[Rfam]
RNA: Streptococcus sRNA 10
Organism: Streptococcus sp. sy004
RNA sequence: AUCAAGGGAGUAGCGACGGUAUUACCGUGACAAGGUCGUCAAGCCGAAAGAAAUUUCCGGCCUUGUCUUAAACAGCAAGACUUGUUUAGAAAACAAACAGGUCUUUUUCU
Numbered sequence: 001a002u003c004a005a006g007g008g009a010g011u012a013g014c015g016a017c018g019g020u021a022u023u024a025c026c027g028u029g030a031c032a033a034g035g036u037c038g039u040c041a042a043g044c045c046g047a048a049a050g051a052a053a054u055u056u057c058c059g060g061c062c063u064u065g066u067c068u069u070a071a072a073c074a075g076c077a078a079g080a081c082u083u084g085u086u087u088a089g090a091a092a093a094c095a096a097a098c099a100g101g102u103c104u105u106u107u108u109c110u
Base pairs, nucleotide, nucleotide: 005028007026008025012022013020014019029067030066031065032064033063034062035061036060037059038058041056042055045050077105078104079103080102081101082100083099084098085097086096087095
Dot-bracket structure: ....(.((...(((....)).)..)).)((((((((((..((..(....)....)).)))))))))).........(((((((((((.......))))))))))).....